[Rfam]
RNA sequence: UUACUUACCUGGACGGGGUCGACGGCUGAUCAAGAAGGGCCGUGGCCUAGAUCAAUGGCUCGCAUUGCACUUGGCGAGCACGUUGGCCUACCAUCUCCCCUUGUUGGGAGAGUGGACGUCAUAAUUUGUGACAGAGGGGGUACGCGUUCGCGCGGCCUCUG
Numbered sequence: 001u002u003a004c005u006u007a008c009c010u011g012g013a014c015g016g017g018g019u020c021g022a023c024g025g026c027u028g029a030u031c032a033a034g035a036a037g038g039g040c041c042g043u044g045g046c047c048u049a050g051a052u053c054a055a056u057g058g059c060u061c062g063c064a065u066u067g068c069a070c071u072u073g074g075c076g077a078g079c080a081c082g083u084u085g086g087c088c089u090a091c092c093a094u095c096u097c098c099c100c101u102u103g104u105u106g107g108g109a110g111a112g113u114g115g116a117c118g119u120c121a122u123a124a125u126u127u128g129u130g131a132c133a134g135a136g137g138g139g140g141u142a143c144g145c146g147u148u149c150g151c152g153c154g155g156c157c158u159c160u161g
Base pairs, nucleotide, nucleotide: 012120013119014118015117016048017047018046019045020044021043023042024041025040026039027038049089050088053086055083056082057081059078060077061076062075063074091115092114093113094111095110096109098107099106136160137159138158139157140156143154144153145152146151